[Rfam]
RNA: MIR5304 microRNA precursor family
RNA sequence: CAAUGCACCAUACUCAUCUCCGUAACUUUCAUCUUUUGCACAUGAGAUGAAAGAUGUGGUGAUGAGUAUGUUGCAUUGAA
Numbered sequence: 001c002a003a004u005g006c007a008c009c010a011u012a013c014u015c016a017u018c019u020c021c022g023u024a025a026c027u028u029u030c031a032u033c034u035u036u037u038g039c040a041c042a043u044g045a046g047a048u049g050a051a052a053g054a055u056g057u058g059g060u061g062a063u064g065a066g067u068a069u070g071u072u073g074c075a076u077u078g079a080a
Stems, first nucleotide, its partner, number of pairs: 001078007009070010020059003024055001026053009